The record is a 133-nucleotide RNA from Cuscuta australis, which matches "MIR168 microRNA precursor family" in Rfam. Its family is annotated with miRNA-mediated post-transcriptional gene silencing and RISC complex in the Gene Ontology.

RNA sequence: GUUGCGGCGGUCUCUGAUUCGCUUGGUGCAGUUCGGGAACUGCCUCGCCGGAUAUUCUCCGAGCACGAUUGCCGUCGUCCGCGGCUGAUCUAGUUCCCGCUUUGCAUCAACUGAAUCCGAGCCCGCCACGAAU
Numbered sequence: 001g002u003u004g005c006g007g008c009g010g011u012c013u014c015u016g017a018u019u020c021g022c023u024u025g026g027u028g029c030a031g032u033u034c035g036g037g038a039a040c041u042g043c044c045u046c047g048c049c050g051g052a053u054a055u056u057c058u059c060c061g062a063g064c065a066c067g068a069u070u071g072c073c074g075u076c077g078u079c080c081g082c083g084g085c086u087g088a089u090c091u092a093g094u095u096c097c098c099g100c101u102u103u104g105c106a107u108c109a110a111c112u113g114a115a116u117c118c119g120a121g122c123c124c125g126c127c128a129c130g131a132a133u
Base pairs, nucleotide, nucleotide: 013120014119017116018115019114020113023110024109025108026107027106028105029104030103031102034099035098036097037096038095040093041092
It scores 86 bits against the family's covariance model. The base pairs follow the family's consensus structure, which was predicted with WAR. The organism belongs to Cuscuta sect. Cleistogrammica, within Eukaryota. For this family Rfam cites "MicroRNAs in plants" (Reinhart et al., Genes Dev, 2002). Rfam 15.1 lists 518 matches to the family in 218 species.